[Rfam]
The record is a 156-nucleotide sequence from Glycine soja, which matches "MIR4371 microRNA precursor family" in Rfam. The source organism's lineage runs through Eukaryota, Gunneridae, Pentapetalae, fabids and Glycine subgen. Soja. The family's consensus secondary structure was predicted with RNAalifold. The family has 4 seed sequences and 321 matches in Rfam 15.1. A search with the family's covariance model found it, with a score of 111 bits.
RNA sequence: UUGUUAAAUGAUAACGUGAUAGACAGAAUGUCACGUCAUCACGUCUUGUCAUAGACACCUCAUUAUCAUGUUAUCACCUUCAAUGAUGUGAUAAUGAUAUGUUCGAUUGAGCGUGAUGACAUGACACCCUGUUUGUCACAUCAUUACUUAACGGAA
Numbered sequence: 001u002u003g004u005u006a007a008a009u010g011a012u013a014a015c016g017u018g019a020u021a022g023a024c025a026g027a028a029u030g031u032c033a034c035g036u037c038a039u040c041a042c043g044u045c046u047u048g049u050c051a052u053a054g055a056c057a058c059c060u061c062a063u064u065a066u067c068a069u070g071u072u073a074u075c076a077c078c079u080u081c082a083a084u085g086a087u088g089u090g091a092u093a094a095u096g097a098u099a100u101g102u103u104c105g106a107u108u109g110a111g112c113g114u115g116a117u118g119a120c121a122u123g124a125c126a127c128c129c130u131g132u133u134u135g136u137c138a139c140a141u142c143a144u145u146a147c148u149u150a151a152c153g154g155a156a
Stems, first nucleotide, its partner, number of pairs: 001154007009146004014141001016139011029126005035120010046109001048107003054103004070087005